[Rfam]
RNA sequence: ACUUACACGGGGUAAGUUUUAUGCGGAAAUCCAACCGCGUACGGCCUAGAACGCCGUUGUUUCUAUAAGGAGAAAACAAAAUG
Numbered sequence: 001a002c003u004u005a006c007a008c009g010g011g012g013u014a015a016g017u018u019u020u021a022u023g024c025g026g027a028a029a030u031c032c033a034a035c036c037g038c039g040u041a042c043g044g045c046c047u048a049g050a051a052c053g054c055c056g057u058u059g060u061u062u063c064u065a066u067a068a069g070g071a072g073a074a075a076a077c078a079a080a081a082u083g
Stems, first nucleotide, its partner, number of pairs: 001017006020041007042056004